[Rfam]
RNA sequence: UAAGCGUAUACUGAAAAGCUUUAAUAGAGUAAGUA
Dot-bracket structure: .((((....[[[.....))))..........]]].
Numbered sequence: 001u002a003a004g005c006g007u008a009u010a011c012u013g014a015a016a017a018g019c020u021u022u023a024a025u026a027g028a029g030u031a032a033g034u035a
Stems, first nucleotide, its partner, number of pairs: 002021004010034003